[Rfam]
RNA sequence: AUUAUGUCCACUCUAAUGCCAUGUUAUGUAACAAAGCCGAAUAACAAGGCCUCGCUUGUGGACGAUAUAAAAUUUGGUUCUAUUAUCCUAGCACCUAAUGUAAUUUAAAAAAUUAGUGUGCUCGAGAAACGUAGAACUACAAAC
Numbered sequence: 001a002u003u004a005u006g007u008c009c010a011c012u013c014u015a016a017u018g019c020c021a022u023g024u025u026a027u028g029u030a031a032c033a034a035a036g037c038c039g040a041a042u043a044a045c046a047a048g049g050c051c052u053c054g055c056u057u058g059u060g061g062a063c064g065a066u067a068u069a070a071a072a073u074u075u076g077g078u079u080c081u082a083u084u085a086u087c088c089u090a091g092c093a094c095c096u097a098a099u100g101u102a103a104u105u106u107a108a109a110a111a112a113u114u115a116g117u118g119u120g121c122u123c124g125a126g127a128a129a130c131g132u133a134g135a136a137c138u139a140c141a142a143a144c
Stems, first nucleotide, its partner, number of pairs: 005064006019049002022046005027040001076138008088126002091123001
RNA: Small nucleolar RNA psi28S-1192
Organism: Musca domestica